[Rfam]
The record is a 107-nucleotide sequence from Rummeliibacillus sp. TYF005, which matches "Listeria sRNA rli61" in Rfam. The base pairs follow the family's consensus structure, which was predicted with RNAalifold.

RNA sequence: UGUGAAAUAAAUCACAAACAAACAUACACCCCUUUGUUUGAACGUGAACAUUUCUCCCAUCCCCUUUGUGAAAAGAAGCAUCUCCCGUAGAGGUGCUUCUUUUGUUU
Numbered sequence: 001u002g003u004g005a006a007a008u009a010a011a012u013c014a015c016a017a018a019c020a021a022a023c024a025u026a027c028a029c030c031c032c033u034u035u036g037u038u039u040g041a042a043c044g045u046g047a048a049c050a051u052u053u054c055u056c057c058c059a060u061c062c063c064c065u066u067u068g069u070g071a072a073a074a075g076a077a078g079c080a081u082c083u084c085c086c087g088u089a090g091a092g093g094u095g096c097u098u099c100u101u102u103u104g105u106u107u
Stems, first nucleotide, its partner, number of pairs: 002056001004054005013046003019040006071103014